[Rfam]
RNA sequence: ACUAAUAAUGAAAAAAAGGGCAGCCUGCCUGCCCUCUCGAUUGUUGAUAACCGGCCCGGACAGACACCAUGUUGACUGGUCGUUCCCCAGACAACAUUACCGGGGGCCUCUCACCAAUCUUCAGGGUAGCUUCGCUACCCUUUUUUACCGGAGUUAU
Numbered sequence: 001a002c003u004a005a006u007a008a009u010g011a012a013a014a015a016a017a018g019g020g021c022a023g024c025c026u027g028c029c030u031g032c033c034c035u036c037u038c039g040a041u042u043g044u045u046g047a048u049a050a051c052c053g054g055c056c057c058g059g060a061c062a063g064a065c066a067c068c069a070u071g072u073u074g075a076c077u078g079g080u081c082g083u084u085c086c087c088c089a090g091a092c093a094a095c096a097u098u099a100c101c102g103g104g105g106g107c108c109u110c111u112c113a114c115c116a117a118u119c120u121u122c123a124g125g126g127u128a129g130c131u132u133c134g135c136u137a138c139c140c141u142u143u144u145u146u147a148c149c150g151g152a153g154u155u156a157u
Base pairs, nucleotide, nucleotide: 013155014154018034019033020032021031023029035125036124037123039122040118041117042116043115046112047111057102058101059100071095072094073093074092076090077089078088079087
The record is a 157-nucleotide sequence from Winslowiella iniecta, which matches "sroC RNA" in Rfam.
The source organism's lineage runs through Bacteria, Pseudomonadati, Pseudomonadota, Gammaproteobacteria and Winslowiella.
This family consists of a number of bacterial sroC RNA genes of around 160 bases in length. sroC is found in several Enterobacterial species. It base-pairs with GcvB. This interaction triggers the degradation of GcvB by RNase E, alleviating the GcvB-mediated mRNA repression of other amino acid-related transport and metabolic genes.
The base pairs follow the family's consensus structure, which was predicted with PFOLD.
The family's RNA type in Rfam is small RNA.